Rfam assigns this 86-nucleotide RNA sequence from Halalkalibacter wakoensis to the family "BsrC". NCBI's taxonomy places the organism under Bacteria, Bacillota, Bacilli, Bacillaceae, Halalkalibacter wakoensis. Rfam 15.1 lists 572 matches to the family in 553 species. Rfam's curators write: The 301 nucleotide sequence from Kouji Nakamura has been trimmed to a highly conserved ~85 nucleotide long core to form this family. A reference for the family is Saito et al. (2008), "Novel small RNA-encoding genes in the intergenic regions of Bacillus subtilis", Gene. It is annotated as a small RNA.
[Rfam]
RNA sequence: CAAUCUCCAGACGAUGAAAGCCCUACCUCUCGUUCAUCCUUGCGGUUCCUUGACCGCGCCAGCUGAAUGAAAAGCGCUAUCAUUUG
Number, nucleotide and partner (000 for none) at each position: 001c000002a000003a000004u000005c000006u000007c000008c000009a000010g000011a000012c000013g000014a000015u000016g000017a000018a000019a000020g000021c000022c000023c000024u000025a000026c000027c000028u000029c000030u000031c000032g000033u000034u066035c065036a064037u000038c000039c062040u061041u058042g057043c056044g055045g054046u053047u052048c000049c000050u000051u000052g047053a046054c045055c044056g043057c042058g041059c000060c000061a040062g039063c000064u036065g035066a034067a000068u000069g000070a000071a000072a000073a000074g000075c000076g000077c000078u000079a000080u000081c000082a000083u000084u000085u000086g000